[Rfam]
RNA sequence: ACAUCGCUAGAGAAAGUAAAUGAAGUAUAACUGGUCGGUCGUGCUCCAGUUUUCGGCUGAAGAGGACCUACAUUGGUUCUAGAACUGCCUGAGGUAGAGGGGUUUUAGUCGGUAGGUCCGAGGACUUCUUCCUCGGGAAUCCGACACUACCCAGUCGUACAGACGGCUGGGUGUCUUUUAAAGAUUUCCCCUCUUCCACGAAA
Dot-bracket structure: ........................................................................((.((...............((.((.(((......(((((....((((((((.....))))))))...))))).(.(((((..............))))))..............)))..)).)))).)).